[Rfam]
RNA: Small nucleolar RNA SNORA40
RNA sequence: AGCACUCAGAGUGCCUAUCUGUUCAACUGGUGGACAAAGGCAUGAAAGACAGGUGCCAGAACCCUCUUUCACAGCCAGAACUCAUUGUUUAGUAUGAGUUUUGAUGCAUACAAGAAGGAAUGUG
Numbered sequence: 001a002g003c004a005c006u007c008a009g010a011g012u013g014c015c016u017a018u019c020u021g022u023u024c025a026a027c028u029g030g031u032g033g034a035c036a037a038a039g040g041c042a043u044g045a046a047a048g049a050c051a052g053g054u055g056c057c058a059g060a061a062c063c064c065u066c067u068u069u070c071a072c073a074g075c076c077a078g079a080a081c082u083c084a085u086u087g088u089u090u091a092g093u094a095u096g097a098g099u100u101u102u103g104a105u106g107c108a109u110a111c112a113a114g115a116a117g118g119a120a121u122g123u124g
Stems, first nucleotide, its partner, number of pairs: 002056005013041004020036003027032001061121001064118002067115003076103010